A member of the RNA family "RAGATH-21 RNA", 93 nucleotides long. The sequence is in the family's curated seed alignment.

RNA sequence: CGCGCACGUCCUUAAAAGAAAGAGAAUUGCAACAAAUUGCAAUCAGUUGCAAAUCUUGAGGUUGAAAAGCGGAUGCAAUUUCCGGCGUGUGCA
Numbered sequence: 001c002g003c004g005c006a007c008g009u010c011c012u013u014a015a016a017a018g019a020a021a022g023a024g025a026a027u028u029g030c031a032a033c034a035a036a037u038u039g040c041a042a043u044c045a046g047u048u049g050c051a052a053a054u055c056u057u058g059a060g061g062u063u064g065a066a067a068a069g070c071g072g073a074u075g076c077a078a079u080u081u082c083c084g085g086c087g088u089g090u091g092c093a
Stems, first nucleotide, its partner, number of pairs: 002092009022057004027052007061070003071083003